This 79-nucleotide RNA from Coccomyxa sp. Obi belongs to the Rfam family "Small nucleolar RNA SNORD24". A search with the family's covariance model found it, with a score of 48 bits. By type it is a C/D-box small nucleolar RNA. Rfam 15.1 lists 2,843 matches to the family in 1,188 species. For this family Rfam cites "U24, a novel intron-encoded small nucleolar RNA with two 12 nt long, phylogenetically conserved complementarities to 28S rRNA" (Qu et al., Nucleic Acids Res, 1995).
[Rfam]
RNA sequence: GGCCGAUGAUUACAUAUAAUUAUAUUUGCUACUCUCGAGGUUUCGAUGACGACAGCAUAUCACCAAGAUCUAUGAGGCC
Number, nucleotide and partner (000 for none) at each position: 001g079002g078003c077004c076005g000006a000007u000008g000009a000010u000011u000012a000013c000014a000015u000016a000017u000018a000019a000020u000021u000022a000023u000024a000025u000026u000027u000028g000029c000030u000031a000032c000033u000034c000035u000036c000037g000038a000039g000040g000041u000042u000043u000044c000045g000046a000047u000048g000049a000050c000051g000052a000053c000054a000055g000056c000057a000058u000059a000060u000061c000062a000063c000064c000065a000066a000067g000068a000069u000070c000071u000072a000073u000074g000075a000076g004077g003078c002079c001